[Rfam]
RNA sequence: UGAUAGCGUAGAAGCGUGAGGUUGCUACAAGAUUUGUAGGUAUUCCGUGGAGCGAAUGUCAAGUUAUGAAACUGGCGACAA
Dot-bracket structure: .............(((.(((....(((((.....)))))...))))))........((((..((((......)))))))).
Numbered sequence: 001u002g003a004u005a006g007c008g009u010a011g012a013a014g015c016g017u018g019a020g021g022u023u024g025c026u027a028c029a030a031g032a033u034u035u036g037u038a039g040g041u042a043u044u045c046c047g048u049g050g051a052g053c054g055a056a057u058g059u060c061a062a063g064u065u066a067u068g069a070a071a072c073u074g075g076c077g078a079c080a081a
Stems, first nucleotide, its partner, number of pairs: 014048003018045003025039005057080004063076004
The record is an 81-nucleotide sequence, which matches "S10-Clostridia ribosomal protein leader" in Rfam.
The base pairs follow the family's consensus structure, which is taken from published work.
By type it is a cis-regulatory leader.